[Rfam]
Nucleotides: 227
Base pairs, nucleotide, nucleotide: 005083006082007081008080009079010078011077012076013075014074015073016072017071020040021039022038023037026034027033044051045050054066055065056064057063086225087224089222093215094214095213096212097211098210102191103190104189105188106187107186108185109184110183111182112181113179115147116146117145118144122139123138124137125136126135127134151176152175154174157172158171159170160169193203194202195201
Number, partner (000 for none) and nucleotide at each position: 001000g002000a003000g004000u005083u006082a007081c008080g009079g010078u011077a012076g013075c014074a015073a016072g017071c018000g019000a020040g021039g022038u023037u024000a025000a026034g027033c028000g029000g030000u031000a032000a033027g034026c035000g036000g037023a038022g039021c040020c041000g042000a043000a044051g045050c046000g047000a048000a049000a050045g051044c052000g053000a054066g055065u056064c057063c058000g059000a060000a061000a062000a063057g064056g065055g066054c067000g068000a069000a070000a071017g072016u073015u074014u075013g076012c077011u078010g079009c080008u081007g082006u083005a084000g085000a086225c087224c088000c089222g090000a091000a092000a093215c094214c095213g096212u097211g098210c099000g100000a101000c102191c103190u104189a105188c106187c107186c108185a109184u110183g111182g112181c113179c114000a115147g116146g117145g118144u119000g120000a121000a122139g123138c124137c125136g126135g127134a128000g129000u130000a131000a132000g133000a134127u135126c136125u137124g138123g139122u140000g141000g142000a143000g144118g145117c146116c147115c148000g149000a150000a151176c152175c153000a154174c155000g156000u157172u158171g159170g160169c161000g162000u163000u164000g165000a166000a167000a168000a169160g170159c171158c172157a173000u174154g175152g176151g177000a178000u179113g180000a181112g182111c183110u184109g185108u186107g187106g188105g189104u190103a191102g192000a193203g194202g195201u196000g197000a198000a199000a200000u201195g202194c203193c204000a205000a206000u207000c208000g209000a210098g211097c212096a213095c214094g215093g216000a217000g218000a219000u220000a221000g222089c223000u224087g225086g226000u227000u

The record is a 227-nucleotide part of an RNA from Thermoanaerobacter sp. X513, which matches "Bacterial large subunit ribosomal RNA" in Rfam.